The family of this 68-nucleotide sequence from Peribacillus loiseleuriae is "Bacillaceae-1 RNA".

RNA sequence: CAUGAAUGACCUUCUGUUAAGAUUGCGUACGUUCUGUGAGCAACACAGAAGUCCGCACAUCCUGUGCA
Numbered sequence: 001c002a003u004g005a006a007u008g009a010c011c012u013u014c015u016g017u018u019a020a021g022a023u024u025g026c027g028u029a030c031g032u033u034c035u036g037u038g039a040g041c042a043a044c045a046c047a048g049a050a051g052u053c054c055g056c057a058c059a060u061c062c063u064g065u066g067c068a
Base pairs, nucleotide, nucleotide: 011051012050013049014048015047016046017045026040028038029037030036055067056066057065058064
The family's RNA type in Rfam is small RNA. Pairs were carried over by alignment from the consensus structure, which is taken from published work.